[Rfam]
RNA: Plastid-ndhJ 3UTR RNA
RNA sequence: UCAUGAACUUUGUACCACGCACAUCACUUAGAUGGACCCCGGAAAGUUUAAUUAUCU
Numbered sequence: 001u002c003a004u005g006a007a008c009u010u011u012g013u014a015c016c017a018c019g020c021a022c023a024u025c026a027c028u029u030a031g032a033u034g035g036a037c038c039c040c041g042g043a044a045a046g047u048u049u050a051a052u053u054a055u056c057u
Stems, first nucleotide, its partner, number of pairs: 019037001022034004